[Rfam]
RNA sequence: CCGGGGAGCCGGGCAGCCGCGUCCGUCCGCAAGGAUGGCCGAGGAAAGUCCGGGCUCCACGAAACAUGGGUGGCGGGUAACGCCCGCCCGGGGAAGCCUUCGGGCCGAACCCGAGGGAAAGUGCCACAGAGAGCAAACCGCCGAUGGCCCGCUUGCGGGCACAGGCAAGGGUGAAAGGGUGCGGCAAGGGCGCACCGGGGUUCCGGCAACGGCGCCCGCACGGCAAACCCCACCCGGAGCAAGACCGCAUAGGGGUCUCGCGCCUUUCGGGGCAACGGCGUUUCGCCGCGAGAGACCCGGGUUGGUCGCUGGAGCGGCGGGAGCGAUCCCCCGCGUAAGAUGAAUGGCUGCCCCCGCGGCGCUGAUAGGUUCUAUAUCGGUCGCGGGACAGAACCCGGCUUACAGGCUCCCCGGCACU
Numbered sequence: 001c002c003g004g005g006g007a008g009c010c011g012g013g014c015a016g017c018c019g020c021g022u023c024c025g026u027c028c029g030c031a032a033g034g035a036u037g038g039c040c041g042a043g044g045a046a047a048g049u050c051c052g053g054g055c056u057c058c059a060c061g062a063a064a065c066a067u068g069g070g071u072g073g074c075g076g077g078u079a080a081c082g083c084c085c086g087c088c089c090g091g092g093g094a095a096g097c098c099u100u101c102g103g104g105c106c107g108a109a110c111c112c113g114a115g116g117g118a119a120a121g122u123g124c125c126a127c128a129g130a131g132a133g134c135a136a137a138c139c140g141c142c143g144a145u146g147g148c149c150c151g152c153u154u155g156c157g158g159g160c161a162c163a164g165g166c167a168a169g170g171g172u173g174a175a176a177g178g179g180u181g182c183g184g185c186a187a188g189g190g191c192g193c194a195c196c197g198g199g200g201u202u203c204c205g206g207c208a209a210c211g212g213c214g215c216c217c218g219c220a221c222g223g224c225a226a227a228c229c230c231c232a233c234c235c236g237g238a239g240c241a242a243g244a245c246c247g248c249a250u251a252g253g254g255g256u257c258u259c260g261c262g263c264c265u266u267u268c269g270g271g272g273c274a275a276c277g278g279c280g281u282u283u284c285g286c287c288g289c290g291a292g293a294g295a296c297c298c299g300g301g302u303u304g305g306u307c308g309c310u311g312g313a314g315c316g317g318c319g320g321g322a323g324c325g326a327u328c329c330c331c332c333g334c335g336u337a338a339g340a341u342g343a344a345u346g347g348c349u350g351c352c353c354c355c356g357c358g359g360c361g362c363u364g365a366u367a368g369g370u371u372c373u374a375u376a377u378c379g380g381u382c383g384c385g386g387g388a389c390a391g392a393a394c395c396c397g398g399c400u401u402a403c404a405g406g407c408u409c410c411c412c413g414g415c416a417c418u
Stems, first nucleotide, its partner, number of pairs: 001414010011403001012352007020041002023038006046401003050398005055239004063283002068235005073087005088115001089113004116230002121228002123224003138170002140166003145161002148158001178196006197219001198217004203212003243307004253298006276288004314334004319330004
RNA: Bacterial RNase P class A
Organism: Aurantiacibacter luteus